[Rfam]
RNA: SAM-I/IV (S-adenosyl methionine) riboswitch aptamer
RNA sequence: CCCUCACAUCAAGAGAGUGGCUGACGCCAACGCCAACCUGCCGACCGGGGCAAGGUGGUUUUCUCUUCACCGAUUCCAUGCCCGGAACCGAUGAGAGAGAUGGGACCCGCACUAAUCGGGUAAUCCAACCGGAUAGG
Numbered sequence: 001c002c003c004u005c006a007c008a009u010c011a012a013g014a015g016a017g018u019g020g021c022u023g024a025c026g027c028c029a030a031c032g033c034c035a036a037c038c039u040g041c042c043g044a045c046c047g048g049g050g051c052a053a054g055g056u057g058g059u060u061u062u063c064u065c066u067u068c069a070c071c072g073a074u075u076c077c078a079u080g081c082c083c084g085g086a087a088c089c090g091a092u093g094a095g096a097g098a099g100a101u102g103g104g105a106c107c108c109g110c111a112c113u114a115a116u117c118g119g120g121u122a123a124u125c126c127a128a129c130c131g132g133a134u135a136g137g
Base pairs, nucleotide, nucleotide: 007102008101009100010099015031018029019028020027021026032059033058034057037055038054039053040051041050042049045132046131047130048129105121106120107119108118